Annotation: Rfam assigns this 97-nucleotide RNA to the family "DUF3800-V RNA". The family's RNA type in Rfam is small RNA.
[Rfam]
RNA sequence: UAGAGUUGGCAAUAAUACCUUUUGAGCUGCCUUGGUGUUCCCCCCGCGGAUGCGAGGGUCUAAGCUAAGGAUUACCAUCUCAAGAGACGCCGCUCUA
Numbered sequence: 001u002a003g004a005g006u007u008g009g010c011a012a013u014a015a016u017a018c019c020u021u022u023u024g025a026g027c028u029g030c031c032u033u034g035g036u037g038u039u040c041c042c043c044c045c046g047c048g049g050a051u052g053c054g055a056g057g058g059u060c061u062a063a064g065c066u067a068a069g070g071a072u073u074a075c076c077a078u079c080u081c082a083a084g085a086g087a088c089g090c091c092g093c094u095c096u097a
Stems, first nucleotide, its partner, number of pairs: 001097006009090002023082004028077002030070007042057002045054003